[Rfam]
RNA sequence: AAUCUGUUUCAGGGCGAGGUGUGAGUCCUCACCGGCGGUAAAGAGCGUUGCGCUACGAGUCCGCGAGCCGAAAGGCAGAAUCGGUUUGAUUCCGAUACCGACGGUAUAGUCCGGAUGAAAGAAACGCGUA
Numbered sequence: 001a002a003u004c005u006g007u008u009u010c011a012g013g014g015c016g017a018g019g020u021g022u023g024a025g026u027c028c029u030c031a032c033c034g035g036c037g038g039u040a041a042a043g044a045g046c047g048u049u050g051c052g053c054u055a056c057g058a059g060u061c062c063g064c065g066a067g068c069c070g071a072a073a074g075g076c077a078g079a080a081u082c083g084g085u086u087u088g089a090u091u092c093c094g095a096u097a098c099c100g101a102c103g104g105u106a107u108a109g110u111c112c113g114g115a116u117g118a119a120a121g122a123a124a125c126g127c128g129u130a
Base pairs, nucleotide, nucleotide: 003128005126006125007124008123009122010121017029018028019027031110032109033100034099035064036063037062038061059098060097067076068075069074080096081095082094083093084092102113103112104111